[Rfam]
RNA sequence: GAUCACGCCGUAGUCUGAUAGCUGGCUCGUCCCCCGCCGCGUCAGACCGGACAAAGGCCUUUCCCCCUCUCCGGGCCUUUGUCCUCCAAUAUGACCGCCAUGGCCGACCCCUCCCGGCCAUGGCGGUUUUAU
Numbered sequence: 001g002a003u004c005a006c007g008c009c010g011u012a013g014u015c016u017g018a019u020a021g022c023u024g025g026c027u028c029g030u031c032c033c034c035c036g037c038c039g040c041g042u043c044a045g046a047c048c049g050g051a052c053a054a055a056g057g058c059c060u061u062u063c064c065c066c067c068u069c070u071c072c073g074g075g076c077c078u079u080u081g082u083c084c085u086c087c088a089a090u091a092u093g094a095c096c097g098c099c100a101u102g103g104c105c106g107a108c109c110c111c112u113c114c115c116g117g118c119c120a121u122g123g124c125g126g127u128u129u130u131a132u
Stems, first nucleotide, its partner, number of pairs: 014046006024038003049084011095126012
Rfam assigns this 132-nucleotide RNA sequence from Agrobacterium fabrum to the family "Alphaproteobacterial sRNA ar7". The pairing is the family consensus, mapped onto this sequence. Lineage of the source: Bacteria > Pseudomonadati > Pseudomonadota > Alphaproteobacteria > Agrobacterium fabrum.